[Rfam]
RNA: sul1 RNA
Organism: Hartmannibacter diazotrophicus
RNA sequence: CACGGACCCGGUGAAAAUCCGGGUGGCUCCUCCGGCCGCCGAACCGCCGGACAACC
Numbered sequence: 001c002a003c004g005g006a007c008c009c010g011g012u013g014a015a016a017a018u019c020c021g022g023g024u025g026g027c028u029c030c031u032c033c034g035g036c037c038g039c040c041g042a043a044c045c046g047c048c049g050g051a052c053a054a055c056c
Base pairs, nucleotide, nucleotide: 006024007023008022009021010020011019012017031051032050033049034048035047036046